[Rfam]
Description
The family of this 69-nucleotide RNA from Cyprinus carpio is "miR-430 microRNA precursor family".

RNA sequence: UAGGGUACCUCUAAAUGGCACUAGCUUAUCUGUUGUAUUUGGUAAGUGCUAUUUGUUUGGGUAGUUUCA
Dot-bracket structure: ...(.(((((...((.((((((.(((..............))).))))))..))....))))).)....
NCBI's taxonomy places the organism under Eukaryota, Deuterostomia, Craniata, Teleostei, Cyprinus carpio. Rfam links the family to the GO terms miRNA-mediated post-transcriptional gene silencing and RISC complex. The family's consensus secondary structure was predicted with RNAalifold.